mir-14 microRNA precursor family: a 73-nucleotide RNA from Cimex lectularius. For this family Rfam cites "Direct sequencing and expression analysis of a large number of miRNAs in Aedes aegypti and a multi-species survey of novel mosquito miRNAs" (Li et al., BMC Genomics, 2009). The organism belongs to Cimex, within Eukaryota. Pairs were carried over by alignment from the consensus structure, which was predicted with RNAalifold.
RNA sequence: UAUCGGGGAGAGAAUCGGGCUUGACUUUUUCCAUUUUCACCAUAUUCCAGUCAGUCUUUUUCUCUCUCCUAUA
Dot-bracket structure: (((.((((.((((...(((((..(((......................))).)))))...)))).)))).)))